[Rfam]
RNA sequence: UGAAUCCCGCCCAGGUAAUCGCUAGCCACGAGCCUGGUAUCGAGCCAUGCAGGCAUAUCGGUAACGAUGUGCUUGAUGCGUAGGCACGAAAGGAAGCGAGGCGCAAAGGUAACAGGUGAAGCUGACCCUGAAGGAUAAAGUCCCGAAAUAACCGCAUUGGAUAAGGCCGAUAGUUUGGUUAAGCUAGCAGGCAACAGGUGUCAUAGCGUAUAGGCGAGCUAUGGCAACCAUCCCGGGAUCUCAGUCCG
Numbered sequence: 001u002g003a004a005u006c007c008c009g010c011c012c013a014g015g016u017a018a019u020c021g022c023u024a025g026c027c028a029c030g031a032g033c034c035u036g037g038u039a040u041c042g043a044g045c046c047a048u049g050c051a052g053g054c055a056u057a058u059c060g061g062u063a064a065c066g067a068u069g070u071g072c073u074u075g076a077u078g079c080g081u082a083g084g085c086a087c088g089a090a091a092g093g094a095a096g097c098g099a100g101g102c103g104c105a106a107a108g109g110u111a112a113c114a115g116g117u118g119a120a121g122c123u124g125a126c127c128c129u130g131a132a133g134g135a136u137a138a139a140g141u142c143c144c145g146a147a148a149u150a151a152c153c154g155c156a157u158u159g160g161a162u163a164a165g166g167c168c169g170a171u172a173g174u175u176u177g178g179u180u181a182a183g184c185u186a187g188c189a190g191g192c193a194a195c196a197g198g199u200g201u202c203a204u205a206g207c208g209u210a211u212a213g214g215c216g217a218g219c220u221a222u223g224g225c226a227a228c229c230a231u232c233c234c235g236g237g238a239u240c241u242c243a244g245u246c247c248g
Base pairs, nucleotide, nucleotide: 012036013035014034015033019031020030021029023217025215026214038091040089041088044085045084046083048080049079050075051074052073053072054071055070056069057068058067059066060065140239141238142237143236144235145234159233160232161231162230165229166192167191168190171186172185173184174183197228199226200225201224202223203222204221205220206219207218
Description:
This 248-nucleotide RNA sequence from Methylovulum psychrotolerans belongs to the Rfam family "Group II catalytic intron D1-D4-6". The literature on the family includes a 2001 paper in EMBO J by Chu et al., "Control of branch-site choice by a group II intron". The match comes from Rfam's covariance-model search (123 bits). The organism belongs to Methylovulum, within Bacteria. Group II introns are found in rRNA, tRNA and mRNA of organelles in fungi, plants and protists, and also in mRNA in bacteria.